[Rfam]
RNA sequence: GGUUUCUAUUGGUGCAAAAUCACUCCGUUUGAGAUGAGAAGCAAUUCUCCAUUGGUAGCAAAUAGUUAUCCAUUAAGCGGAGGAAAUAGUCU
Numbered sequence: 001g002g003u004u005u006c007u008a009u010u011g012g013u014g015c016a017a018a019a020u021c022a023c024u025c026c027g028u029u030u031g032a033g034a035u036g037a038g039a040a041g042c043a044a045u046u047c048u049c050c051a052u053u054g055g056u057a058g059c060a061a062a063u064a065g066u067u068a069u070c071c072a073u074u075a076a077g078c079g080g081a082g083g084a085a086a087u088a089g090u091c092u
Stems, first nucleotide, its partner, number of pairs: 010022003047082004051073002054070006
A member of the RNA family "Plastid-rps12 3UTR RNA" from Aphyllorchis montana, 92 nucleotides long. It is one of the family's seed sequences. It is annotated as a cis-regulatory element. Rfam describes the family as follows. Plastid rpl20 is a non-coding RNA (ncRNA) recognised in plastids. It was found in the three prime untranslated region (3UTR) of rps12 gene, its 3UTR location sugest a role in transcript maduration.